Background
A member of the RNA family "mir-1421 microRNA precursor family" from Ornithorhynchus anatinus, 74 nucleotides long. Pairs were carried over by alignment from the consensus structure, which was predicted with RNAalifold. Rfam links the family to the GO terms RISC complex and miRNA-mediated post-transcriptional gene silencing.
[Rfam]
RNA sequence: UGGCUUGUGGAGGUCACACAUCAUGCCGUGUGGUGGUGGAAUAUGCUGCAUAGCGGGUGAUCUCCCUAUCCAGU
Number, nucleotide and partner (000 for none) at each position: 001u000002g000003g071004c000005u000006u068007g067008u000009g065010g064011a063012g062013g061014u060015c059016a058017c057018a000019c055020a000021u053022c000023a051024u050025g049026c048027c000028g000029u000030g000031u000032g000033g000034u000035g000036g000037u000038g000039g000040a000041a000042u000043a000044u000045g000046c000047u000048g026049c025050a024051u023052a000053g021054c000055g019056g000057g017058u016059g015060a014061u013062c012063u011064c010065c009066c000067u007068a006069u000070c000071c003072a000073g000074u000